[Rfam]
RNA sequence: GUUAAAGGAGGGCCGACUAAAACCGGCUAAAGCCAACGUCGGCAUACCCCUAUCCAGGGG
Numbered sequence: 001g002u003u004a005a006a007g008g009a010g011g012g013c014c015g016a017c018u019a020a021a022a023c024c025g026g027c028u029a030a031a032g033c034c035a036a037c038g039u040c041g042g043c044a045u046a047c048c049c050c051u052a053u054c055c056a057g058g059g060g
Base pairs, nucleotide, nucleotide: 012043013042014041015040016039017038025034026033027032048060049059050058051057

The record is a 60-nucleotide sequence from Virgibacillus indicus, which matches "Bacillaceae-1 RNA" in Rfam. Pairs were carried over by alignment from the consensus structure, which is taken from published work. Taxonomically the source falls in Virgibacillus (Bacteria, Bacillota, Bacilli, Bacillaceae).